Alphaproteobacterial sRNA ar35: a 135-nucleotide RNA from Rhizobium sp. AC44/96. It scores 81 bits against the family's covariance model. Lineage of the source: Bacteria > Pseudomonadati > Pseudomonadota > Rhizobiaceae > Rhizobium. For this family Rfam cites "A survey of sRNA families in alpha-proteobacteria" (del Val et al., RNA Biol, 2012). The pairing is the family consensus, mapped onto this sequence.
RNA sequence: AGAGGCAUCUUUUUGAGCGCUGGAAAUAGUGCCGCUCGCGAUGUCACAUCUACUACCUUUUGACCACGGACGUGCUGGCAAAGGGUAGGAAGACAAACCAAAGGUCGGUGCGAUUUCGCACCGACCUUUUUUUGU
Numbered sequence: 001a002g003a004g005g006c007a008u009c010u011u012u013u014u015g016a017g018c019g020c021u022g023g024a025a026a027u028a029g030u031g032c033c034g035c036u037c038g039c040g041a042u043g044u045c046a047c048a049u050c051u052a053c054u055a056c057c058u059u060u061u062g063a064c065c066a067c068g069g070a071c072g073u074g075c076u077g078g079c080a081a082a083g084g085g086u087a088g089g090a091a092g093a094c095a096a097a098c099c100a101a102a103g104g105u106c107g108g109u110g111c112g113a114u115u116u117c118g119c120a121c122c123g124a125c126c127u128u129u130u131u132u133u134g135u
Stems, first nucleotide, its partner, number of pairs: 004045006015037005049093003055086004061080002064078003094134004100129009110119003